[Rfam]
RNA: Small nucleolar RNA snoR26
Organism: Thalictrum thalictroides
RNA sequence: GCAGGAUCAAUGAUGUUUAUAUCCUUUUUGUUAUCCUUGCACUUUGAUUGCCAGUGAAGAAAAUUAUGGGGAAAGUUAAGUCGGAGAUGUUG
Numbered sequence: 001g002c003a004g005g006a007u008c009a010a011u012g013a014u015g016u017u018u019a020u021a022u023c024c025u026u027u028u029u030g031u032u033a034u035c036c037u038u039g040c041a042c043u044u045u046g047a048u049u050g051c052c053a054g055u056g057a058a059g060a061a062a063a064u065u066a067u068g069g070g071g072a073a074a075g076u077u078a079a080g081u082c083g084g085a086g087a088u089g090u091u092g
Stems, first nucleotide, its partner, number of pairs: 002092003006088003